[Rfam]
RNA: 6A RNA
RNA sequence: AGAUUUGGUCGUAGAGCCACGACCAAGCAAAUCAAAAGAAAGCUCACUAGAG
Numbered sequence: 001a002g003a004u005u006u007g008g009u010c011g012u013a014g015a016g017c018c019a020c021g022a023c024c025a026a027g028c029a030a031a032u033c034a035a036a037a038g039a040a041a042g043c044u045c046a047c048u049a050g051a052g
Base pairs, nucleotide, nucleotide: 006025007024008023009022010021011020014045015044016043017042